The family of this 62-nucleotide sequence from Cebus imitator is "U7 small nuclear RNA". The family has 49 seed sequences and 10,439 matches in Rfam 15.1. Lineage of the source: Eukaryota > Teleostomi > Theria > Cebidae > Cebus.
RNA sequence: AAGUGUUACAGCUCUUUUAGAAUUUGUGUAGCAGGCUUUCCAGUUUUUGCCGAAAAGCUCCU
Numbered sequence: 001a002a003g004u005g006u007u008a009c010a011g012c013u014c015u016u017u018u019a020g021a022a023u024u025u026g027u028g029u030a031g032c033a034g035g036c037u038u039u040c041c042a043g044u045u046u047u048u049g050c051c052g053a054a055a056a057g058c059u060c061c062u
Stems, first nucleotide, its partner, number of pairs: 034059006041052001043050002